[Rfam]
RNA sequence: UGCAAGUGCACUCUGUGUCACAUUGAUUUUCAAUAACAACCACAUGUGAUGACAAUUUGUUAACUUGCUAAACUAAAUCUAAAGCUGCGACUUAUCCAUGUGAUCGUGUCCUUUCAAAAUUAUCACAUUGAAUACGCGCUUUACACUCCUUAU
Numbered sequence: 001u002g003c004a005a006g007u008g009c010a011c012u013c014u015g016u017g018u019c020a021c022a023u024u025g026a027u028u029u030u031c032a033a034u035a036a037c038a039a040c041c042a043c044a045u046g047u048g049a050u051g052a053c054a055a056u057u058u059g060u061u062a063a064c065u066u067g068c069u070a071a072a073c074u075a076a077a078u079c080u081a082a083a084g085c086u087g088c089g090a091c092u093u094a095u096c097c098a099u100g101u102g103a104u105c106g107u108g109u110c111c112u113u114u115c116a117a118a119a120u121u122a123u124c125a126c127a128u129u130g131a132a133u134a135c136g137c138g139c140u141u142u143a144c145a146c147u148c149c150u151u152a153u
Base pairs, nucleotide, nucleotide: 002068003067004066005065006064007063010060011059014054015053016052017050018049019048020047021046022045023044025043074152075151076150081141082140084139085138088136089135095131096130098128099127100126101125102124103123104122106120107119